A member of the RNA family "DUF805b RNA", 36 nucleotides long.
The base pairs follow the family's consensus structure, which is taken from published work.
[Rfam]
RNA sequence: UAGGCGGAUUCUGAAAAGCCUUGGAGAGAGUAGGAG
Numbered sequence: 001u002a003g004g005c006g007g008a009u010u011c012u013g014a015a016a017a018g019c020c021u022u023g024g025a026g027a028g029a030g031u032a033g034g035a036g
Base pairs, nucleotide, nucleotide: 002021003020004019005018010035011034012033